Shown here is a 204-nucleotide sequence from Setaria italica, a member of the family "MIR159 microRNA precursor family".
Gene Ontology terms of the family: miRNA-mediated post-transcriptional gene silencing and RISC complex.
RNA sequence: GCAAAGACUGAAGAGCUCCCUUCGAUCCAAUCCAGGAGGGGAAGUGGUGUGAUGCAGCUGCCGGUUCAUGGAUACCUCUCUUGUGCAGCAAUGAUCGGUGUGUUCACCUGCCUGCACUUGCAUGGGUGUGCAUGACCCGGGAGAUGAACCCACCAGCAUCUUUCCCUCGUGCUUGGAUUGAAGGGAGCUCCUCUCUCCCUCUCU
Number, nucleotide and partner (000 for none) at each position: 001g000002c000003a000004a000005a000006g000007a000008c000009u000010g000011a000012a000013g190014a189015g188016c187017u186018c185019c184020c183021u000022u000023c180024g179025a178026u177027c176028c175029a174030a000031u000032c000033c000034a000035g000036g167037a000038g000039g000040g000041g000042a000043a000044g000045u000046g000047g000048u000049g000050u000051g000052a000053u000054g000055c000056a000057g000058c143059u142060g000061c140062c139063g138064g000065u000066u000067c134068a133069u132070g131071g000072a000073u000074a000075c126076c125077u124078c000079u000080c000081u000082u000083g000084u000085g000086c000087a000088g000089c000090a000091a000092u000093g000094a000095u000096c000097g000098g000099u000100g000101u000102g000103u000104u000105c000106a000107c000108c000109u000110g000111c000112c000113u000114g000115c000116a000117c000118u000119u000120g000121c000122a000123u000124g077125g076126g075127u000128g000129u000130g000131c070132a069133u068134g067135a000136c000137c000138c063139g062140g061141g000142a059143g058144a000145u000146g000147a000148a000149c000150c000151c000152a000153c000154c000155a000156g000157c000158a000159u000160c000161u000162u000163u000164c000165c000166c000167u036168c000169g000170u000171g000172c000173u000174u029175g028176g027177a026178u025179u024180g023181a000182a000183g020184g019185g018186a017187g016188c015189u014190c013191c000192u000193c000194u000195c000196u000197c000198c000199c000200u000201c000202u000203c000204u000
On this family, see Jones-Rhoades and Bartel, Mol Cell 2004: "Computational identification of plant microRNAs and their targets, including a stress-induced miRNA".